Shown here is a 96-nucleotide RNA from Vagococcus elongatus, a member of the family "THF (Tetrahydrofolate) riboswitch aptamer". A reference for the family is Trausch and Batey (2014), "A disconnect between high-affinity binding and efficient regulation by antifolates and purines in the tetrahydrofolate riboswitch", Chem Biol. The base pairs follow the family's consensus structure, which is taken from published work. About the family: Tetrahydrofolate (THF) riboswitch was first reported for Ames et al. as an RNA motif in 5' untranslated (5'-UTR)regions of folate transport and biosynthesis genes in Firmicutes genomes.
Nucleotides: 096
Base pairs, nucleotide, nucleotide: 003094004093005092010084011083012082013081014080015079016078017077018076019075020073021072022071026057027056029055030054031053032052033051034050035049036048040090041089042088043087044086061070062069063068
Number, partner (000 for none) and nucleotide at each position: 001000a002000u003094c004093a005092g006000a007000g008000u009000a010084g011083a012082a013081a014080g015079u016078g017077a018076a019075g020073c021072g022071u023000u024000a025000a026057g027056u028000g029055u030054u031053u032052c033051c034050g035049g036048g037000a038000u039000g040090g041089a042088a043087u044086g045000u046000u047000g048036c049035c050034c051033g052032g053031a054030a055029g056027a057026c058000g059000a060000a061070g062069g063068a064000g065000a066000a067000a068063u069062c070061c071022g072021c073020g074000g075019u076018u077017u078016c079015a080014u081013u082012u083011u084010c085000g086044c087043g088042u089041u090040c091000g092005c093004u094003g095000c096000a